[Rfam]
RNA: mir-8364 microRNA precursor family
Organism: Pristionchus pacificus
RNA sequence: UCUUCAUUUCACGUACUCUCUCACAGGUGAGAAAGGCGAGAGAGUGUGUGAAAUGAAGAGA
Dot-bracket structure: (((((((..(.((((((.((((...............)))).)))))).)..)))))))..